Background: The family of this 65-nucleotide sequence is "mir-29 microRNA precursor family". For this family Rfam cites "microRNAs: tiny regulators with great potential" (Ambros, Cell, 2001). The family's consensus secondary structure was predicted with PFOLD. It is one of the family's seed sequences. About the family: This family represents the microRNA (miRNA) precursors mir-29.

RNA sequence: CUGGUUUCAUAUGGUGGUUUAGAUUUAACUAUUCAUUGUCUAGCACCAUUUGAAAUCAGUGUUCU
Numbered sequence: 001c002u003g004g005u006u007u008c009a010u011a012u013g014g015u016g017g018u019u020u021a022g023a024u025u026u027a028a029c030u031a032u033u034c035a036u037u038g039u040c041u042a043g044c045a046c047c048a049u050u051u052g053a054a055a056u057c058a059g060u061g062u063u064c065u
Base pairs, nucleotide, nucleotide: 001059002058003057004056005055006054007053008052009051011049012048013047014046015045016044020042021041022040023039